[Rfam]
RNA sequence: GUGCAUCUAGUAGGGAUUGAACCCAUCGAUUUGCCAAUUAUGAGUUGGAUGCUUUAACCAUUCAAUCAUCGAUGC
Numbered sequence: 001g002u003g004c005a006u007c008u009a010g011u012a013g014g015g016a017u018u019g020a021a022c023c024c025a026u027c028g029a030u031u032u033g034c035c036a037a038u039u040a041u042g043a044g045u046u047g048g049a050u051g052c053u054u055u056a057a058c059c060a061u062u063c064a065a066u067c068a069u070c071g072a073u074g075c
Base pairs, nucleotide, nucleotide: 003075004074005073006072007071010026011025013023014022040069041068042067044066045065046064047063048062049061050060051059
The record is a 75-nucleotide sequence from Vitis rotundifolia, which matches "Plastid-ycf2 5UTR RNA" in Rfam. It is annotated as a cis-regulatory element. A reference for the family is Richter et al. (2023), "Retrograde signaling in plants: A critical review focusing on the GUN pathway and beyond", Plant Commun. The organism belongs to Vitis, within Eukaryota. About the family: Plastid ycf2 is a non-coding RNA (ncRNA) recognised in plastids.